[Rfam]
RNA sequence: GGCGGCAGCUAUAAAUAUGCAUGGCUGCCCGCAUCACACACUGCGCAUAUUGGAGAAAAGACCAUGGCACUGAGCCCGCAAGAAAAAGCACAGAUCCUGAAGGACUAUGGCCAGAAAGAA
Numbered sequence: 001g002g003c004g005g006c007a008g009c010u011a012u013a014a015a016u017a018u019g020c021a022u023g024g025c026u027g028c029c030c031g032c033a034u035c036a037c038a039c040a041c042u043g044c045g046c047a048u049a050u051u052g053g054a055g056a057a058a059a060g061a062c063c064a065u066g067g068c069a070c071u072g073a074g075c076c077c078g079c080a081a082g083a084a085a086a087a088g089c090a091c092a093g094a095u096c097c098u099g100a101a102g103g104a105c106u107a108u109g110g111c112c113a114g115a116a117a118g119a120a
Base pairs, nucleotide, nucleotide: 007026008025009024010023011022012021050073051072052071053070055068
Dot-bracket structure: ......((((((........)))))).......................((((.(............).))))...............................................